RNA sequence: GUUUGUCUUCAGGGCAGGGUGAAAUUCCCGACCGGCGGUUAAAAAGUCCGCGACCUACUUGCAAAAGUAGCCGAUCCAGUGUGAUUCUGGAACCGAUAGUAUAGUCUAGAUGGAAGAAGACAGUC
Numbered sequence: 001g002u003u004u005g006u007c008u009u010c011a012g013g014g015c016a017g018g019g020u021g022a023a024a025u026u027c028c029c030g031a032c033c034g035g036c037g038g039u040u041a042a043a044a045a046g047u048c049c050g051c052g053a054c055c056u057a058c059u060u061g062c063a064a065a066a067g068u069a070g071c072c073g074a075u076c077c078a079g080u081g082u083g084a085u086u087c088u089g090g091a092a093c094c095g096a097u098a099g100u101a102u103a104g105u106c107u108a109g110a111u112g113g114a115a116g117a118a119g120a121c122a123g124u125c
Base pairs, nucleotide, nucleotide: 003123004122005121006120007119008118009117010116017029018028019027031105032104033095034094035051036050037049038048046093047092055070056069075091076090077089078088079087097108098107099106
About this RNA
This 125-nucleotide RNA from Lapidilactobacillus concavus belongs to the Rfam family "FMN riboswitch aptamer (RFN element)". Lineage of the source: Bacteria > Bacillota > Lactobacillaceae > Lapidilactobacillus > Lapidilactobacillus concavus. Its family is annotated with FMN binding in the Gene Ontology. A search with the family's covariance model found it, with a score of 119 bits.